[Rfam]
RNA sequence: CCGCCACCGAAAUGCCUGCCGACGUUGUCGGCGACAUGCCCAGGUAGCCCGCGGUCCUUGAGGCUACGGCGCAGUCUUCUGCGCUGACCGCUCCCCGUUCGCUCCGCAUCCUGGCCGCGAACAAUCACCUCUGCGUGGUGGUGGAUGC
Numbered sequence: 001c002c003g004c005c006a007c008c009g010a011a012a013u014g015c016c017u018g019c020c021g022a023c024g025u026u027g028u029c030g031g032c033g034a035c036a037u038g039c040c041c042a043g044g045u046a047g048c049c050c051g052c053g054g055u056c057c058u059u060g061a062g063g064c065u066a067c068g069g070c071g072c073a074g075u076c077u078u079c080u081g082c083g084c085u086g087a088c089c090g091c092u093c094c095c096c097g098u099u100c101g102c103u104c105c106g107c108a109u110c111c112u113g114g115c116c117g118c119g120a121a122c123a124a125u126c127a128c129c130u131c132u133g134c135g136u137g138g139u140g141g142u143g144g145a146u147g148c
Stems, first nucleotide, its partner, number of pairs: 012037003015033001018032006044067006053089004068085007117148003124142006131135001

The family of this 148-nucleotide RNA from Herminiimonas arsenicoxydans is "radC RNA". Lineage of the source: Bacteria > Pseudomonadati > Betaproteobacteria > Oxalobacteraceae > Herminiimonas. The base pairs follow the family's consensus structure, which is taken from published work. Rfam 15.1 lists 500 matches to the family in 142 species.